[Rfam]
RNA sequence: CUUCUCUCAGCUCCGCUUAAUCACACUCUUGUGUGUGGUUGGCGUAUUUUCAGAGAGAGAGAGGAAGGCCCUCCUAAUGCACGACAGACUGGUCCAAAGUGGCCUGUCUGUUCCUAGGAGUGCAACAGCU
Numbered sequence: 001c002u003u004c005u006c007u008c009a010g011c012u013c014c015g016c017u018u019a020a021u022c023a024c025a026c027u028c029u030u031g032u033g034u035g036u037g038g039u040u041g042g043c044g045u046a047u048u049u050u051c052a053g054a055g056a057g058a059g060a061g062a063g064g065a066a067g068g069c070c071c072u073c074c075u076a077a078u079g080c081a082c083g084a085c086a087g088a089c090u091g092g093u094c095c096a097a098a099g100u101g102g103c104c105u106g107u108c109u110g111u112u113c114c115u116a117g118g119a120g121u122g123c124a125a126c127a128g129c130u
Stems, first nucleotide, its partner, number of pairs: 002063007011055003015051001019040008071120005077115001079113001086109003091104004
The record is a 130-nucleotide sequence from Camelus ferus, which matches "Small nucleolar RNA SNORA64/SNORA10 family" in Rfam. The source organism's lineage runs through Eukaryota, Teleostomi, Mammalia, Artiodactyla and Camelus. Clan: SNORA64 clan.